[Rfam]
RNA sequence: GCCAAAAUGAAGCUUUUAUCUGCAUUUGCACCUGCACUUGUACUAGUUCUUGUUUCUUACUUCCUUGAAAAACCCUGAAACCAAGCUUCAAAGCAUGGCAAAGGUUUUAGAUGUAUGAGAGGAAAAAAAAAGAAGAAAAGAGGAAAGGAAUAAAGGAAUAGGAGGAAAAUGGAAGUCAGAAGGAAGAGGAGGAACAAGCAACAGGUGCAGGUGCAAGUGCAGGUGAAUGCCAUUUUGGU
Numbered sequence: 001g002c003c004a005a006a007a008u009g010a011a012g013c014u015u016u017u018a019u020c021u022g023c024a025u026u027u028g029c030a031c032c033u034g035c036a037c038u039u040g041u042a043c044u045a046g047u048u049c050u051u052g053u054u055u056c057u058u059a060c061u062u063c064c065u066u067g068a069a070a071a072a073c074c075c076u077g078a079a080a081c082c083a084a085g086c087u088u089c090a091a092a093g094c095a096u097g098g099c100a101a102a103g104g105u106u107u108u109a110g111a112u113g114u115a116u117g118a119g120a121g122g123a124a125a126a127a128a129a130a131a132g133a134a135g136a137a138a139a140g141a142g143g144a145a146a147g148g149a150a151u152a153a154a155g156g157a158a159u160a161g162g163a164g165g166a167a168a169a170u171g172g173a174a175g176u177c178a179g180a181a182g183g184a185a186g187a188g189g190a191g192g193a194a195c196a197a198g199c200a201a202c203a204g205g206u207g208c209a210g211g212u213g214c215a216a217g218u219g220c221a222g223g224u225g226a227a228u229g230c231c232a233u234u235u236u237g238g239u
Stems, first nucleotide, its partner, number of pairs: 001239009012230002015227025055149003061146001